Annotation: A member of the RNA family "T-box leader" from Oscillibacter sp. PC13, 205 nucleotides long. Taxonomically the source falls in Oscillibacter (Bacteria, Bacillota, Clostridia, Eubacteriales). The match comes from Rfam's covariance-model search (116 bits).
RNA sequence: AAAAGUGCAAUGACAGGGAGGAGUAUCCUGUUUUUCCCGGACAAGAGAGGGGGCGGCCGGUGCGAGCCCUUACGGGAGAGUGGGAGAAGGCGCCUUGGAGCUGCAGCGCGGAAAUGCGCUGCCGGAACCCGCCGUUACCGGGCAGAGUGUCCCCUACCGGGGAAAUUCAGGUGGAACCACGGACUUUAUCAAGUUCGCCCUGAGC
Dot-bracket structure: ......((......((((.......((((((......((.........((((((...........)))))).)).....)))))).......))))...))..(((((((....))))))).(((......)))...............(((((....)))))....((((........((((((......)))))).))))...

Rfam's curators write: Uncharged tRNA acts as the effector for transcription antitermination of genes in the T-box leader family. Its family is annotated with tRNA binding in the Gene Ontology.